The family of this 341-nucleotide sequence from Vombatus ursinus is "Small Cajal body-specific RNA 7". For this family Rfam cites "Cajal body-specific small nuclear RNAs: a novel class of 2'-O-methylation and pseudouridylation guide RNAs" (Darzacq et al., EMBO J, 2002).

RNA sequence: UGGAAAUGAUGAAACAGAGAUAACUGGGUGCAUUUGAAUGGUGUGUAAUUUGAGCAUUAUUAAAUUUAUUAUCAAAUUAAAUAAACAUCUAAAAUGGGCGGGGGGGGGGGAGGUGGAGGGGUGUGUGUAUGUGUGUGUGCACGGGUGUAUACAUAAAGGCUAAGGAAAGGGAGCCCUGACUGACAAUGCAGAUAUCGGAGUGCAUCUGAGGCUGUUGUAAAAAUACGUGAGUGUUUAUUACAGCUUUGCCAAUGAUUAUAACUCAGGAACAGCUCACUUACCUGCCUGACACCCUACAGUCUCUAACAGGUUCAUAAAUGUGGACCUGUGAUCUGAUCCAG
Numbered sequence: 001u002g003g004a005a006a007u008g009a010u011g012a013a014a015c016a017g018a019g020a021u022a023a024c025u026g027g028g029u030g031c032a033u034u035u036g037a038a039u040g041g042u043g044u045g046u047a048a049u050u051u052g053a054g055c056a057u058u059a060u061u062a063a064a065u066u067u068a069u070u071a072u073c074a075a076a077u078u079a080a081a082u083a084a085a086c087a088u089c090u091a092a093a094a095u096g097g098g099c100g101g102g103g104g105g106g107g108g109g110g111a112g113g114u115g116g117a118g119g120g121g122u123g124u125g126u127g128u129a130u131g132u133g134u135g136u137g138u139g140c141a142c143g144g145g146u147g148u149a150u151a152c153a154u155a156a157a158g159g160c161u162a163a164g165g166a167a168a169g170g171g172a173g174c175c176c177u178g179a180c181u182g183a184c185a186a187u188g189c190a191g192a193u194a195u196c197g198g199a200g201u202g203c204a205u206c207u208g209a210g211g212c213u214g215u216u217g218u219a220a221a222a223a224u225a226c227g228u229g230a231g232u233g234u235u236u237a238u239u240a241c242a243g244c245u246u247u248g249c250c251a252a253u254g255a256u257u258a259u260a261a262c263u264c265a266g267g268a269a270c271a272g273c274u275c276a277c278u279u280a281c282c283u284g285c286c287u288g289a290c291a292c293c294c295u296a297c298a299g300u301c302u303c304u305a306a307c308a309g310g311u312u313c314a315u316a317a318a319u320g321u322g323g324a325c326c327u328g329u330g331a332u333c334u335g336a337u338c339c340a341g
Stems, first nucleotide, its partner, number of pairs: 001340004214244007222235005
The family's RNA type in Rfam is small Cajal body RNA. The family has 18 seed sequences and 570 matches in Rfam 15.1.